[Rfam]
Shown here is a 135-nucleotide RNA from Coregonus sp. 'balchen', a member of the family "Small nucleolar RNA SNORA49". The family has 21 seed sequences and 722 matches in Rfam 15.1. Rfam links the family to the GO terms RNA processing and nucleolus. The snoRNA ACA49 has no identified RNA target. NB genomic sequence 1-nt different from published. Pairs were carried over by alignment from the consensus structure, which was predicted with RNAalifold. Rfam classes the family as an H/ACA-box small nucleolar RNA.

RNA sequence: CUUCCCCUCCCUUACUCCAGUCACGCUGUCUCCAGUGGGUGGGCUGGCAUUGACAGGGGAUACAGCAGCAUGGCGCUCUCAUUUCUCUCAUCUAGGACCUUAAUCUUACAUGGGGCUUAUGAGACAGCUGAUAAU
Numbered sequence: 001c002u003u004c005c006c007c008u009c010c011c012u013u014a015c016u017c018c019a020g021u022c023a024c025g026c027u028g029u030c031u032c033c034a035g036u037g038g039g040u041g042g043g044c045u046g047g048c049a050u051u052g053a054c055a056g057g058g059g060a061u062a063c064a065g066c067a068g069c070a071u072g073g074c075g076c077u078c079u080c081a082u083u084u085c086u087c088u089c090a091u092c093u094a095g096g097a098c099c100u101u102a103a104u105c106u107u108a109c110a111u112g113g114g115g116c117u118u119a120u121g122a123g124a125c126a127g128c129u130g131a132u133a134a135u
Base pairs, nucleotide, nucleotide: 003060004059005058006057007056008055011052017047018046019045020044021043022042023040024039026037072129073128074127079124087114088113089112090111091110093108094107095106096105